A member of the RNA family "Small nucleolar RNA R21" from Capsicum baccatum, 80 nucleotides long. A reference for the family is Barneche et al. (2001), "Identification of 66 box C/D snoRNAs in Arabidopsis thaliana: extensive gene duplications generated multiple isoforms predicting new ribosomal RNA 2'-O-methylation sites", J Mol Biol. The match comes from Rfam's covariance-model search (56 bits). The base pairs follow the family's consensus structure, which was predicted with PFOLD.
[Rfam]
RNA sequence: UAUCUCUGUGAUGAACUAGCUGAAUAAUUUAAAAGUAGUGGCCUGAUGCCUAUUGAUGAAAAGCUUUGUUCUGAGAGAUU
Dot-bracket structure: .(((((....................................................................))))).